RNA sequence: AGCCUGCGACCGCUGAAUCCGCAUCCUGCGGAACCGGGGACCCACUCAGUCCCACCGGGGCGAAUGAUCGGCCCUCCGAUCUAGGACAGCUUCACGUCCGAGCCCGUCAGCUAACCCGGUAAGCGGUAUGAAGCGAGGAG
Numbered sequence: 001a002g003c004c005u006g007c008g009a010c011c012g013c014u015g016a017a018u019c020c021g022c023a024u025c026c027u028g029c030g031g032a033a034c035c036g037g038g039g040a041c042c043c044a045c046u047c048a049g050u051c052c053c054a055c056c057g058g059g060g061c062g063a064a065u066g067a068u069c070g071g072c073c074c075u076c077c078g079a080u081c082u083a084g085g086a087c088a089g090c091u092u093c094a095c096g097u098c099c100g101a102g103c104c105c106g107u108c109a110g111c112u113a114a115c116c117c118g119g120u121a122a123g124c125g126g127u128a129u130g131a132a133g134c135g136a137g138g139a140g
Base pairs, nucleotide, nucleotide: 011125012124013123014122018032019031020030033120034119035118036117037116038115043057058105059104060103066081067080068079069078084099085098086097087096